[Rfam]
RNA sequence: UAGACAAAUUUUUGUAUUCGAGUGUAUUCACGACGUGAAACAGGAGAUUACAGCUGUUUUUAAACGAAAAGUGAUUCAAUUAACAAAAUAGACUCCU
Numbered sequence: 001u002a003g004a005c006a007a008a009u010u011u012u013u014g015u016a017u018u019c020g021a022g023u024g025u026a027u028u029c030a031c032g033a034c035g036u037g038a039a040a041c042a043g044g045a046g047a048u049u050a051c052a053g054c055u056g057u058u059u060u061u062a063a064a065c066g067a068a069a070a071g072u073g074a075u076u077c078a079a080u081u082a083a084c085a086a087a088a089u090a091g092a093c094u095c096c097u
Stems, first nucleotide, its partner, number of pairs: 003095002009091002012088002015085001017083002020081002023078002026076001028074004034066003037060007
Rfam assigns this 97-nucleotide RNA sequence from Nicotiana sylvestris to the family "MIR6152 microRNA precursor family". Pairs were carried over by alignment from the consensus structure, which was predicted with RNAalifold.